[Rfam]
Nucleotides: 073
Stems, first nucleotide, its partner, number of pairs: 003014003015046009026035003
Number, partner (000 for none) and nucleotide at each position: 001000a002000c003014u004013g005012g006000u007000u008000a009000u010000a011000a012005c013004c014003a015046g016045c017044a018043c019042g020041g021040g022039c023038g024000u025000c026035g027034g028033a029000g030000a031000a032000a033028u034027c035026c036000u037000a038023c039022g040021c041020c042019c043018g044017u045016g046015c047000a048000c049000g050000c051000a052000u053000a054000u055000u056000a057000a058000g059000g060000g061000c062000a063000g064000g065000a066000u067000c068000a069000a070000c071000a072000a073000c